[Rfam]
The family of this 264-nucleotide sequence from Eubacterium oxidoreducens is "Bacterial large signal recognition particle RNA". Rfam's curators write: The signal recognition particle (SRP) is a universally conserved ribonucleoprotein involved in the co-translational targeting of proteins to membranes. Rfam links the family to the GO terms signal recognition particle, plasma membrane targeting and SRP-dependent cotranslational protein targeting to membrane, signal sequence recognition. The match comes from Rfam's covariance-model search (170 bits).
RNA sequence: CCGAGCAGCCGGAGUGUUAGCGGUACUCUUUACCAUCAAUCCGCUAUAGUUGGGGUGAUGCCCCGCCUCGGGCUUUGGAAUUGCAGAGCCGCCCUUUAUAAGUGGCGUUGAAGCUUGGGUCUUAAGCGACGGAAAUCUGCGAACUGGGUCAGGUUGGGAACAAAGCAGCCCUAAGUAGAACCUUCCGGGUGCCUUGAGGGUGCCUGGGCUGAGUUAACUGUAGAGGUAACGUCUGUGGUUACGGGUUCAAAGCGGGACGCUCGG
Numbered sequence: 001c002c003g004a005g006c007a008g009c010c011g012g013a014g015u016g017u018u019a020g021c022g023g024u025a026c027u028c029u030u031u032a033c034c035a036u037c038a039a040u041c042c043g044c045u046a047u048a049g050u051u052g053g054g055g056u057g058a059u060g061c062c063c064c065g066c067c068u069c070g071g072g073c074u075u076u077g078g079a080a081u082u083g084c085a086g087a088g089c090c091g092c093c094c095u096u097u098a099u100a101a102g103u104g105g106c107g108u109u110g111a112a113g114c115u116u117g118g119g120u121c122u123u124a125a126g127c128g129a130c131g132g133a134a135a136u137c138u139g140c141g142a143a144c145u146g147g148g149u150c151a152g153g154u155u156g157g158g159a160a161c162a163a164a165g166c167a168g169c170c171c172u173a174a175g176u177a178g179a180a181c182c183u184u185c186c187g188g189g190u191g192c193c194u195u196g197a198g199g200g201u202g203c204c205u206g207g208g209c210u211g212a213g214u215u216a217a218c219u220g221u222a223g224a225g226g227u228a229a230c231g232u233c234u235g236u237g238g239u240u241a242c243g244g245g246u247u248c249a250a251a252g253c254g255g256g257a258c259g260c261u262c263g264g
Base pairs, nucleotide, nucleotide: 001264002263003262004261005260006259008056009055010054011029012028013027014026015025016024017023018022033053034052035051037049062256063255064254065253066252068250070248071247072246073245074244075243077242079240080239081238082237083236084235085234086233091227094225095224096223097222098221099220102218103217104215105214106213112210113209114208115207116206117205118204119203120202121198122197123196124195125194126193127189130187131186132185133184134183136179137178138177139176140175146171147170148169149168154163155162156161